RNA: GA-cis RNA
Nucleotides: 086
Stems, first nucleotide, its partner, number of pairs: 008045006015031006054076003058072002062068002
Number, partner (000 for none) and nucleotide at each position: 001000g002000c003000c004000a005000g006000g007000a008045g009044a010043u011042g012041c013040c014000c015031a016030u017029g018028u019027g020026a021000u022000g023000a024000a025000g026020u027019c028018a029017c030016a031015u032000a033000u034000a035000a036000a037000a038000a039000u040013g041012g042011c043010a044009u045008c046000g047000a048000c049000g050000a051000c052000a053000u054076c055075u056074c057000a058072c059071a060000u061000u062068g063067c064000g065000g066000u067063g068062c069000a070000a071059u072058g073000u074056g075055a076054g077000a078000g079000u080000a081000c082000c083000a084000a085000c086000a